[Rfam]
RNA: MAT2A 3'UTR stem loop F
Organism: Sphaeramia orbicularis
RNA sequence: AAUGGGAUGGCAACAUUUGGUUGGUGUAGUACAGAGAAACCAGCUUUGUUUACAUGGCCAUUCCAUU
Numbered sequence: 001a002a003u004g005g006g007a008u009g010g011c012a013a014c015a016u017u018u019g020g021u022u023g024g025u026g027u028a029g030u031a032c033a034g035a036g037a038a039a040c041c042a043g044c045u046u047u048g049u050u051u052a053c054a055u056g057g058c059c060a061u062u063c064c065a066u067u
Base pairs, nucleotide, nucleotide: 001067002066003065004064005063006062007061009059010058011057012050013049014048019045020044021043022042023041024040025039026032027031